[Rfam]
RNA: mir-133 microRNA precursor family
RNA sequence: UUGCUGAAGCUGGUAAAAGAGAACCAGAUCGACUUUUGCACGGAUUUGGUCCCCUUCAACCAGCUGCAGCUG
Numbered sequence: 001u002u003g004c005u006g007a008a009g010c011u012g013g014u015a016a017a018a019g020a021g022a023a024c025c026a027g028a029u030c031g032a033c034u035u036u037u038g039c040a041c042g043g044a045u046u047u048g049g050u051c052c053c054c055u056u057c058a059a060c061c062a063g064c065u066g067c068a069g070c071u072g
Stems, first nucleotide, its partner, number of pairs: 003070004008065007017056002021051002024049007